Notes:
The record is a 381-nucleotide part of an RNA from Entomophaga aulicae, which matches "Eukaryotic large subunit ribosomal RNA" in Rfam. The literature on the family includes a 2002 paper in BMC Bioinformatics by Cannone et al., "The comparative RNA web (CRW) site: an online database of comparative sequence and structure information for ribosomal, intron, and other RNAs". Pairs were carried over by alignment from the consensus structure, which is taken from published work. The family is grouped with related families in Rfam's "LSU clan".
RNA sequence: GUUGUUGUAAUAGUAAUUUAACUUAGUACGAGAGGAACCGUUAAUUCAGAUCAUUGGUAUUUGCUGUUAGCUGAAAAGCUAGUGCAGCGAAGCUACCAUCUGCCGGAGUACAGCUGAACGCCUCUAAGCUGGAACCCGUGCUAGAAACAACGACAUUUUAGUCUUUUUUAAUAAACUUAGGUGAUUUUUCGGAAUCAUUGUGUAUUGAUGUACUGGGUUAUGCGCAGAAAGAUAUUUUUGUAGCAGACCUAGUUAUUGACAAAUAAAACAACGACUAAUUUAAAUUUGAUUGCAUACGACUUUAAUAAAACUAGGUGCUGUAAAUAGCUGAGUAGACCUAGUUCUACGAUCUAUUGAGGCUAAUCCUGGGUUUUGUUCUGC
Numbered sequence: 001g002u003u004g005u006u007g008u009a010a011u012a013g014u015a016a017u018u019u020a021a022c023u024u025a026g027u028a029c030g031a032g033a034g035g036a037a038c039c040g041u042u043a044a045u046u047c048a049g050a051u052c053a054u055u056g057g058u059a060u061u062u063g064c065u066g067u068u069a070g071c072u073g074a075a076a077a078g079c080u081a082g083u084g085c086a087g088c089g090a091a092g093c094u095a096c097c098a099u100c101u102g103c104c105g106g107a108g109u110a111c112a113g114c115u116g117a118a119c120g121c122c123u124c125u126a127a128g129c130u131g132g133a134a135c136c137c138g139u140g141c142u143a144g145a146a147a148c149a150a151c152g153a154c155a156u157u158u159u160a161g162u163c164u165u166u167u168u169u170a171a172u173a174a175a176c177u178u179a180g181g182u183g184a185u186u187u188u189u190c191g192g193a194a195u196c197a198u199u200g201u202g203u204a205u206u207g208a209u210g211u212a213c214u215g216g217g218u219u220a221u222g223c224g225c226a227g228a229a230a231g232a233u234a235u236u237u238u239u240g241u242a243g244c245a246g247a248c249c250u251a252g253u254u255a256u257u258g259a260c261a262a263a264u265a266a267a268a269c270a271a272c273g274a275c276u277a278a279u280u281u282a283a284a285u286u287u288g289a290u291u292g293c294a295u296a297c298g299a300c301u302u303u304a305a306u307a308a309a310a311c312u313a314g315g316u317g318c319u320g321u322a323a324a325u326a327g328c329u330g331a332g333u334a335g336a337c338c339u340a341g342u343u344c345u346a347c348g349a350u351c352u353a354u355u356g357a358g359g360c361u362a363a364u365c366c367u368g369g370g371u372u373u374u375g376u377u378c379u380g381c
Base pairs, nucleotide, nucleotide: 001154002153003152004151005150006149007148008147011143012142013141014140016046018044019043020042021041022040047102048101049100050099051098055095056094057093062089063088064087065086066085067082068081069080070079071078072077104138105137106136111131112130113129114128115127158278159277160276161275162274163273282379284377286375287304289303292300307374308373309372310371311370312369313367314366315365317360318359324354325353326352327351332347333346334345335344336343